[Rfam]
RNA sequence: CGCCUGCUCAUUGGGGAGUAGCCGCCUCGAACGCCAUGUUCGAGGGCGCACGUCAACAUACUUGGCGAGUCGAGAGACCCGCUAUGGCGUGCGCAGCUAAAUGCCUGGCAAGACCGAUGACUCGCAUUCCGACCUAACCGGGUCGCCGGAAUGCGCGUCAUCGCGUUUUUUCUGCGCGGCCCGGAUAC
Numbered sequence: 001c002g003c004c005u006g007c008u009c010a011u012u013g014g015g016g017a018g019u020a021g022c023c024g025c026c027u028c029g030a031a032c033g034c035c036a037u038g039u040u041c042g043a044g045g046g047c048g049c050a051c052g053u054c055a056a057c058a059u060a061c062u063u064g065g066c067g068a069g070u071c072g073a074g075a076g077a078c079c080c081g082c083u084a085u086g087g088c089g090u091g092c093g094c095a096g097c098u099a100a101a102u103g104c105c106u107g108g109c110a111a112g113a114c115c116g117a118u119g120a121c122u123c124g125c126a127u128u129c130c131g132a133c134c135u136a137a138c139c140g141g142g143u144c145g146c147c148g149g150a151a152u153g154c155g156c157g158u159c160a161u162c163g164c165g166u167u168u169u170u171u172c173u174g175c176g177c178g179g180c181c182c183g184g185a186u187a188c
Stems, first nucleotide, its partner, number of pairs: 026044003046094010063084005098187002